[Rfam]
RNA sequence: GUUGGCUAUGGGGACAUGUACCCCAUGACUGUAGGGGGCAAGAUUGUGGGAUCUCUCUGUGCCAUUGCAGGCGUCCUCACCAUUGCCCUACCUGUGCCGGUCAUUGUCUCCAAC
Numbered sequence: 001g002u003u004g005g006c007u008a009u010g011g012g013g014a015c016a017u018g019u020a021c022c023c024c025a026u027g028a029c030u031g032u033a034g035g036g037g038g039c040a041a042g043a044u045u046g047u048g049g050g051a052u053c054u055c056u057c058u059g060u061g062c063c064a065u066u067g068c069a070g071g072c073g074u075c076c077u078c079a080c081c082a083u084u085g086c087c088c089u090a091c092c093u094g095u096g097c098c099g100g101u102c103a104u105u106g107u108c109u110c111c112a113a114c
Base pairs, nucleotide, nucleotide: 001114002113004111005110008107009106010105011104013102014101015100018097019096020095021094037077038076040074049063050062
Dot-bracket structure: ((.((..((((.(((..((((...............((.(........((...........))..........).))................))))..))).))))..)).))